[Rfam]
RNA sequence: UGCUCUCUGCCCUGCAGGUGAGGUCCAGACGCCCAGGCGGAAUGAUAAUUCAAUGGGAAAGCUUACAGGGGCGCGGUGUGCCAGCCCACCAGCGAGUGGGACGCCUGAUGCGCCUACAAGCGAUCCCACCUGUUGGUACUCGCUAGGAGGCCAACGGAUCCACGGCAGGUGUGGAGAGCAG
Numbered sequence: 001u002g003c004u005c006u007c008u009g010c011c012c013u014g015c016a017g018g019u020g021a022g023g024u025c026c027a028g029a030c031g032c033c034c035a036g037g038c039g040g041a042a043u044g045a046u047a048a049u050u051c052a053a054u055g056g057g058a059a060a061g062c063u064u065a066c067a068g069g070g071g072c073g074c075g076g077u078g079u080g081c082c083a084g085c086c087c088a089c090c091a092g093c094g095a096g097u098g099g100g101a102c103g104c105c106u107g108a109u110g111c112g113c114c115u116a117c118a119a120g121c122g123a124u125c126c127c128a129c130c131u132g133u134u135g136g137u138a139c140u141c142g143c144u145a146g147g148a149g150g151c152c153a154a155c156g157g158a159u160c161c162a163c164g165g166c167a168g169g170u171g172u173g174g175a176g177a178g179c180a181g
Stems, first nucleotide, its partner, number of pairs: 002179009012168004018163002031151003034146001036144004055127003061121004069115006080104002085100005

The family of this 181-nucleotide RNA sequence from Desulfuromonas sp. DDH964 is "6S / SsrS RNA". The base pairs follow the family's consensus structure, which is taken from published work. For this family Rfam cites "6S RNA regulates E. coli RNA polymerase activity" (Wassarman and Storz, Cell, 2000). The match comes from Rfam's covariance-model search (70 bits). NCBI's taxonomy places the organism under Bacteria, Pseudomonadati, Desulfuromonadia, Desulfuromonadaceae, Desulfuromonas.